[Rfam]
RNA sequence: UUUAUAAAUGGGCAAAGCAGUCGAAAGGCUGUGACGCAAAACUAUAGGGCCUGUAAAAUGGCAGCCAGCUGCAGAA
Dot-bracket structure: ...........((...((((((....))))))...))..(.((...(((((........)))..)))).)......
RNA: c-di-GMP-I riboswitch aptamer
Organism: Ruminococcus sp. AF31-8BH